[Rfam]
RNA sequence: UUUCCCCUUUUUACUUUGCUAGCUGGACUUAUGUCUUCAUUGGCCAUUCAAGAUGGGCAGAGGAAAUAUUAUUUUAAGAUUCAGGCAAACUGGGUGUCUGUCUUGUAAUCUGUCAGAGGAAAUAAAU
Numbered sequence: 001u002u003u004c005c006c007c008u009u010u011u012u013a014c015u016u017u018g019c020u021a022g023c024u025g026g027a028c029u030u031a032u033g034u035c036u037u038c039a040u041u042g043g044c045c046a047u048u049c050a051a052g053a054u055g056g057g058c059a060g061a062g063g064a065a066a067u068a069u070u071a072u073u074u075u076a077a078g079a080u081u082c083a084g085g086c087a088a089a090c091u092g093g094g095u096g097u098c099u100g101u102c103u104u105g106u107a108a109u110c111u112g113u114c115a116g117a118g119g120a121a122a123u124a125a126a127u
Stems, first nucleotide, its partner, number of pairs: 032059005040051004069120002072117003082105001083103005089097002

Shown here is a 127-nucleotide RNA from Oryctolagus cuniculus, a member of the family "Small nucleolar RNA SNORA27". About the family: ACA27 is a member of the H/ACA class of snoRNA that guide the sites of modification of uridines to pseudouridines. Rfam links the family to the GO terms RNA processing and nucleolus. Rfam 15.1 lists 819 matches to the family in 543 species. The source organism's lineage runs through Eukaryota, Craniata, Teleostomi, Dipnotetrapodomorpha and Oryctolagus.